[Rfam]
RNA sequence: UGCUUAUAAAGAAAGACCGAGGGAUGGGCCCGAUGACGUCUUGGCAACCACUUCUAAAAAGGGGCAGGUGCCAAAUCCCACUAAGUACAUAACCCGUUAUGUGCUUAGAAAGAUAAGCG
Numbered sequence: 001u002g003c004u005u006a007u008a009a010a011g012a013a014a015g016a017c018c019g020a021g022g023g024a025u026g027g028g029c030c031c032g033a034u035g036a037c038g039u040c041u042u043g044g045c046a047a048c049c050a051c052u053u054c055u056a057a058a059a060a061g062g063g064g065c066a067g068g069u070g071c072c073a074a075a076u077c078c079c080a081c082u083a084a085g086u087a088c089a090u091a092a093c094c095c096g097u098u099a100u101g102u103g104c105u106u107a108g109a110a111a112g113a114u115a116a117g118c119g
Base pairs, nucleotide, nucleotide: 001119002118003117004116005115006114007113013042014041015040016039017038021031022030023029025080026079027078028077043072044071045070046069048068049067051063052062053061076111081108082107083106084105085104086103087102088101089100090099091098092097